[Rfam]
RNA sequence: UCUGGCGAUGAUGACACACUUGCCCUCACUGAGAACGCUGUUCAAUAAUGAGAACCUCACACCGUAUACUCAGAGGAGCUGAGCCAGA
Numbered sequence: 001u002c003u004g005g006c007g008a009u010g011a012u013g014a015c016a017c018a019c020u021u022g023c024c025c026u027c028a029c030u031g032a033g034a035a036c037g038c039u040g041u042u043c044a045a046u047a048a049u050g051a052g053a054a055c056c057u058c059a060c061a062c063c064g065u066a067u068a069c070u071c072a073g074a075g076g077a078g079c080u081g082a083g084c085c086a087g088a
Stems, first nucleotide, its partner, number of pairs: 001088006
A member of the RNA family "Small nucleolar RNA SNORD103/SNORD85" from Gopherus agassizii, 88 nucleotides long. Taxonomically the source falls in Gopherus (Eukaryota, Metazoa, Amniota, Testudinoidea). For this family Rfam cites "RNomics: an experimental approach that identifies 201 candidates for novel, small, non-messenger RNAs in mouse" (Huttenhofer et al., EMBO J, 2001). The family's RNA type in Rfam is C/D-box small nucleolar RNA. It scores 72 bits against the family's covariance model. Pairs were carried over by alignment from the consensus structure. Gene Ontology terms of the family: RNA processing and nucleolus.